[Rfam]
RNA: Small nucleolar RNA Z279/snoR105/snoR108
RNA sequence: GCGACAAGAGUGGUUAAUUACUCGCUAAUUCUGCGAGAAGAGUGUUUCGCUCAGCCUGUUACGACAAUUGAGCGGUCUCCUUUCUCUACCAUCUGAUCCC
Dot-bracket structure: (.........((((......(((((.......))))).(((.((((.........(.((.......)).))))).))).........)))).....)...
Numbered sequence: 001g002c003g004a005c006a007a008g009a010g011u012g013g014u015u016a017a018u019u020a021c022u023c024g025c026u027a028a029u030u031c032u033g034c035g036a037g038a039a040g041a042g043u044g045u046u047u048c049g050c051u052c053a054g055c056c057u058g059u060u061a062c063g064a065c066a067a068u069u070g071a072g073c074g075g076u077c078u079c080c081u082u083u084c085u086c087u088a089c090c091a092u093c094u095g096a097u098c099c100c
Stems, first nucleotide, its partner, number of pairs: 001097001011091004021037005039078003043074004056070001058068002